[Rfam]
RNA sequence: UAGUAAUUUACUAUUAAACUCACAUACAUUCGGCAAACAUAUUCCGGGGUGCCUGUUACCAGCAUGAUGGUAACCAUAGGUCGGAAUUAUGGAAUGUAUGAACGCUUAAC
Numbered sequence: 001u002a003g004u005a006a007u008u009u010a011c012u013a014u015u016a017a018a019c020u021c022a023c024a025u026a027c028a029u030u031c032g033g034c035a036a037a038c039a040u041a042u043u044c045c046g047g048g049g050u051g052c053c054u055g056u057u058a059c060c061a062g063c064a065u066g067a068u069g070g071u072a073a074c075c076a077u078a079g080g081u082c083g084g085a086a087u088u089a090u091g092g093a094a095u096g097u098a099u100g101a102a103c104g105c106u107u108a109a110c
Base pairs, nucleotide, nucleotide: 023100024099025098026097027096028095029094030093038091039090040089041088043085044084045083046082051081052080053079054078055077
t44 RNA: a 110-nucleotide RNA sequence from Thalassomonas sp. M1454. Taxonomically the source falls in Thalassomonas (Bacteria, Pseudomonadota, Gammaproteobacteria, Colwelliaceae). A search with the family's covariance model found it, with a score of 49 bits.